[Rfam]
Nucleotides: 111
Stems, first nucleotide, its partner, number of pairs: 006105007013061004019053006028041005063096003066092001068091002071088005
Number, partner (000 for none) and nucleotide at each position: 001000g002000g003000c004000a005000c006105c007104g008103c009102c010101g011100g012099a013061c014060a015059g016058a017000g018000a019053c020052g021051g022050u023049c024048u025000c026000g027000a028041g029040g030039g031038u032037u033000g034000g035000g036000g037032a038031g039030c040029c041028c042000a043000g044000u045000g046000a047000c048024a049023g050022g051021c052020c053019g054000c055000a056000u057000c058016u059015c060014u061013g062000a063096g064095a065094c066092g067000g068091u069090g070000u071088c072087g073086g074085g075084u076000c077000a078000u079000a080000g081000g082000g083000a084075g085074c086073c087072u088071g089000g090069c091068g092066c093000a094065g095064u096063c097000g098000c099012u100011c101010u102009g103008g104007c105006g106000a107000a108000g109000g110000a111000g

This 111-nucleotide RNA belongs to the Rfam family "Actinomyces-1 RNA".
By type it is a small RNA.
The sequence is in the family's curated seed alignment.